[Rfam]
RNA sequence: AUCCCGCGCAUGUCCGGGUUUGACAUGUACCUCCCUGUUGGACUUGCCCGGGCCUUUGUGCCCGGGUCUCUUU
Numbered sequence: 001a002u003c004c005c006g007c008g009c010a011u012g013u014c015c016g017g018g019u020u021u022g023a024c025a026u027g028u029a030c031c032u033c034c035c036u037g038u039u040g041g042a043c044u045u046g047c048c049c050g051g052g053c054c055u056u057u058g059u060g061c062c063c064g065g066g067u068c069u070c071u072u073u
Stems, first nucleotide, its partner, number of pairs: 008028007046067008
RNA: Singlet oxygen resistance RNA X